[Rfam]
Small Cajal body specific RNA 1: a 163-nucleotide sequence from Scleropages formosus.
RNA sequence: AGGCACCUGAUACUGGCCUGGUCGUCUGAAGCUCAGCGCCAUCUGUGCGCUGGACUGUGUCCCGAUGGCUCCCAGGUCCCCAGCGGUGCCAGAGUAAAUGAGCCCUGAGAUUUAAGCACGGUGUGCAAAGUCACACUCUGUGUUAUGCCUCAGAGGCACAAGA
Numbered sequence: 001a002g003g004c005a006c007c008u009g010a011u012a013c014u015g016g017c018c019u020g021g022u023c024g025u026c027u028g029a030a031g032c033u034c035a036g037c038g039c040c041a042u043c044u045g046u047g048c049g050c051u052g053g054a055c056u057g058u059g060u061c062c063c064g065a066u067g068g069c070u071c072c073c074a075g076g077u078c079c080c081c082a083g084c085g086g087u088g089c090c091a092g093a094g095u096a097a098a099u100g101a102g103c104c105c106u107g108a109g110a111u112u113u114a115a116g117c118a119c120g121g122u123g124u125g126c127a128a129a130g131u132c133a134c135a136c137u138c139u140g141u142g143u144u145a146u147g148c149c150u151c152a153g154a155g156g157c158a159c160a161a162g163a
Base pairs, nucleotide, nucleotide: 003089004088005087006086007085015078016077017076018075020073021072024069025068026067028061029060031058032057033053035051036050037049038048039047102157103156104155121136122135123134124133125132137154138153139152140151142149
Record summary: Its family is annotated with Cajal body, nucleolus and RNA processing in the Gene Ontology. Lineage of the source: Eukaryota > Opisthokonta > Deuterostomia > Chordata > Scleropages. scaRNAs are a specific class of small nuclear RNAs which localise to the Cajal bodies and guide the modification of RNA polymerase II transcribed spliceosomal RNAs U1, U2, U4, U5 and U12. ACA35 belong to the H/ACA box class of guide RNAs as it has the predicted hairpin-hinge-hairpin-tail structure, conserved H/ACA-box motifs and is found associated with GAR1. It is predicted to guide pseudouridylation of the U2 spliceosomal snRNA at residue U89. The match comes from Rfam's covariance-model search (71 bits).